[Rfam]
RNA sequence: AAAAUUACCUGACAUAGAAGCAUUGAUGGUAAUUUGAUUCCAUAAGUGCUUCUCUUUGGGGUUGUCUUG
Numbered sequence: 001a002a003a004a005u006u007a008c009c010u011g012a013c014a015u016a017g018a019a020g021c022a023u024u025g026a027u028g029g030u031a032a033u034u035u036g037a038u039u040c041c042a043u044a045a046g047u048g049c050u051u052c053u054c055u056u057u058g059g060g061g062u063u064g065u066c067u068u069g
Stems, first nucleotide, its partner, number of pairs: 004065002007062004014056001016053009026043003
RNA: miR-430 microRNA precursor family
Organism: Gadus morhua